The record is a 107-nucleotide sequence from Prunus yedoensis, which matches "MIR6297 microRNA precursor family" in Rfam. The match comes from Rfam's covariance-model search (119 bits). NCBI's taxonomy places the organism under Eukaryota, Pentapetalae, fabids, Prunus, Prunus yedoensis. Gene Ontology terms of the family: RISC complex and miRNA-mediated post-transcriptional gene silencing.
[Rfam]
RNA sequence: GCGCAAAGUGACUUUGUGCGACGAAUUGUUUUUCGUCGCUCAAAAUGUAGUCGCGUAAGACUUUGAGCGACGAAGUUUAAUUUUCGUCGCGCAAAGUCACUUUGUGC
Numbered sequence: 001g002c003g004c005a006a007a008g009u010g011a012c013u014u015u016g017u018g019c020g021a022c023g024a025a026u027u028g029u030u031u032u033u034c035g036u037c038g039c040u041c042a043a044a045a046u047g048u049a050g051u052c053g054c055g056u057a058a059g060a061c062u063u064u065g066a067g068c069g070a071c072g073a074a075g076u077u078u079a080a081u082u083u084u085c086g087u088c089g090c091g092c093a094a095a096g097u098c099a100c101u102u103u104g105u106g107c
Base pairs, nucleotide, nucleotide: 001107002106003105004104005103006102007101008100009099010098011097012096013095014094015093016092017091018090019089020088021087022086023085024084025083033073034072035071036070037069038068039067041065042064043063049062050061051060052059